[Rfam]
RNA sequence: CAUGUAGUUGAAUAACACCUCUGUAUAUUCUCGGAAAUAGGGUUCGAGAGUUUCUACAAAACACCGUAAAUGUUUUGACUAUGGAGGCGGAUUGACGUUUG
Numbered sequence: 001c002a003u004g005u006a007g008u009u010g011a012a013u014a015a016c017a018c019c020u021c022u023g024u025a026u027a028u029u030c031u032c033g034g035a036a037a038u039a040g041g042g043u044u045c046g047a048g049a050g051u052u053u054c055u056a057c058a059a060a061a062c063a064c065c066g067u068a069a070a071u072g073u074u075u076u077g078a079c080u081a082u083g084g085a086g087g088c089g090g091a092u093u094g095a096c097g098u099u100u101g
Base pairs, nucleotide, nucleotide: 018087019086020085021084022083023082024081025080029049030048031047032046033045034044035043057077058076059075060074061073062072063071
This 101-nucleotide sequence from Paraliobacillus quinghaiensis belongs to the Rfam family "Purine riboswitch aptamer". From the family's description: Riboswitches are metabolite binding domains within certain messenger RNAs that serve as precision sensors for their corresponding targets. Allosteric rearrangement of mRNA structure is mediated by ligand binding, and this results in modulation of gene expression. A class of riboswitches that selectively recognises guanine and becomes saturated at concentrations as low as 5 nM. In Bacillus subtilis, this mRNA motif is located on at least five separate transcriptional units that together encode 17 genes that are mostly involved in purine transport and purine nucleotide biosynthesis. It has also been shown that some members of this family are specific for adenine instead.